[Rfam]
RNA sequence: AUCACCUGGGGAUCUUGGUAAAAUGCACAUUCUGAUUCCAUUGCUCAGAGGUGGGGCCUAAGAUUCUGCAUUUCCAGCAAGCUCCUAGGUGAUGCUAA
Numbered sequence: 001a002u003c004a005c006c007u008g009g010g011g012a013u014c015u016u017g018g019u020a021a022a023a024u025g026c027a028c029a030u031u032c033u034g035a036u037u038c039c040a041u042u043g044c045u046c047a048g049a050g051g052u053g054g055g056g057c058c059u060a061a062g063a064u065u066c067u068g069c070a071u072u073u074c075c076a077g078c079a080a081g082c083u084c085c086u087a088g089g090u091g092a093u094g095c096u097a098a
Base pairs, nucleotide, nucleotide: 003091004090005089009085010084011083014081015080016079017078019076021073022072023071025069026068027067029065031063032062033061